RNA sequence: UCCAUCGCGAGGUGGAAUCUGAAGGAAGCCGGCGGCAAAAUCCCGAACUGACGGACAGAAACUGUAUAUAAGGCUGAAUUGGAAUGGAUGAGUUUGCUAAACAUAACGAAAUCCAAUACUGCACAAGUUCCAUACAGUAAAUACAGCAGUUACAUGGGAGGAAGGUUAUAGCC
Number, nucleotide and partner (000 for none) at each position: 001u016002c015003c014004a013005u012006c011007g000008c000009g000010a000011g006012g005013u004014g003015g002016a001017a000018u000019c000020u000021g000022a000023a000024g000025g000026a000027a000028g173029c000030c171031g000032g169033c000034g000035g166036c165037a000038a000039a000040a000041u159042c158043c157044c156045g155046a151047a150048c149049u148050g147051a000052c000053g000054g000055a000056c000057a000058g000059a000060a000061a000062c146063u145064g144065u143066a142067u141068a000069u000070a000071a000072g000073g138074c137075u136076g000077a000078a000079u000080u132081g131082g130083a129084a128085u000086g114087g113088a112089u111090g000091a000092g107093u106094u105095u000096g000097c000098u000099a000100a000101a000102c000103a000104u000105a094106a093107c092108g000109a000110a000111a089112u088113c087114c086115a000116a000117u000118a000119c000120u000121g000122c000123a000124c000125a000126a000127g000128u084129u083130c082131c081132a080133u000134a000135c000136a075137g074138u073139a000140a000141a067142u066143a065144c064145a063146g062147c050148a049149g048150u047151u046152a000153c000154a000155u045156g044157g043158g042159a041160g000161g000162a000163a000164g000165g036166u035167u000168a000169u032170a000171g030172c000173c028
A member of the RNA family "Group II catalytic intron D1-D4-3" from Sporosarcina limicola, 173 nucleotides long. From the family's description: Group II introns are found in rRNA, tRNA and mRNA of organelles in fungi, plants and protists, and also in mRNA in bacteria. The match comes from Rfam's covariance-model search (147 bits).